[Rfam]
RNA sequence: UGCGUGGUUUAGGUAGUCUCAUGUUGUUGGGCUUUUUAUUUUAUGUUUCCACAACACGAAACUGCCUUGAUUACCUC
Numbered sequence: 001u002g003c004g005u006g007g008u009u010u011a012g013g014u015a016g017u018c019u020c021a022u023g024u025u026g027u028u029g030g031g032c033u034u035u036u037u038a039u040u041u042u043a044u045g046u047u048u049c050c051a052c053a054a055c056a057c058g059a060a061a062c063u064g065c066c067u068u069g070a071u072u073a074c075c076u077c
Stems, first nucleotide, its partner, number of pairs: 004074006011067007019059001022056006029049003
Shown here is a 77-nucleotide RNA sequence from Cyprinodon variegatus, a member of the family "mir-196 microRNA precursor family". The literature on the family includes a 2003 paper in RNA by Lagos-Quintana et al., "New microRNAs from mouse and human". Gene Ontology terms of the family: gene silencing by miRNA and RISC complex. Rfam 15.1 lists 1,813 matches to the family in 642 species.